[Rfam]
RNA sequence: UGAUGGCAAUGAUGAUUUUAAACUUAUUGUUCACCUGAUGAAUAAUGUGAGGGUGUUCAGUCACUACCUCAUCUGAUGCCAUCU
Numbered sequence: 001u002g003a004u005g006g007c008a009a010u011g012a013u014g015a016u017u018u019u020a021a022a023c024u025u026a027u028u029g030u031u032c033a034c035c036u037g038a039u040g041a042a043u044a045a046u047g048u049g050a051g052g053g054u055g056u057u058c059a060g061u062c063a064c065u066a067c068c069u070c071a072u073c074u075g076a077u078g079c080c081a082u083c084u
Stems, first nucleotide, its partner, number of pairs: 002083006
Small nucleolar RNA SNORD11B: an 84-nucleotide RNA sequence from Phyllostomus discolor. The family's consensus secondary structure was predicted with WAR. A reference for the family is Yang et al. (2006), "snoSeeker: an advanced computational package for screening of guide and orphan snoRNA genes in the human genome", Nucleic Acids Res. The family is grouped with related families in Rfam's "SNORD11 clan". Its family is annotated with nucleolus and RNA processing in the Gene Ontology. The organism belongs to Phyllostomus, within Eukaryota. It is annotated as a C/D-box small nucleolar RNA.